[Rfam]
RNA sequence: AUAUAAAAAAACCUGCAGAGCAUACUCUGCAGGGUCCUUCUAUUUCCUUUAUAAAAGGAAGAAGGAAAAGGGAGAGGAGAAACCGGAGGAAGGUCUUAUGGGGAAAUGUAAGACUUCUCCGCGG
Number, nucleotide and partner (000 for none) at each position: 001a000002u000003a000004u000005a000006a000007a000008a000009a000010a000011a000012c033013c032014u031015g030016c029017a028018g027019a026020g000021c000022a000023u000024a000025c000026u019027c018028u017029g016030c015031a014032g013033g012034g000035u072036c071037c070038u069039u068040c000041u000042a000043u000044u060045u059046c058047c057048u056049u055050u000051a000052u000053a000054a000055a049056a048057g047058g046059a045060a044061g000062a000063a000064g000065g000066a000067a000068a039069a038070g037071g036072g035073a000074g000075a000076g000077g000078a000079g000080a000081a000082a000083c000084c121085g120086g119087a118088g000089g117090a116091a115092g114093g000094u113095c112096u111097u110098a109099u000100g000101g000102g000103g000104a000105a000106a000107u000108g000109u098110a097111a096112g095113a094114c092115u091116u090117c089118u087119c086120c085121g084122c000123g000124g000
RNA: ylbH leader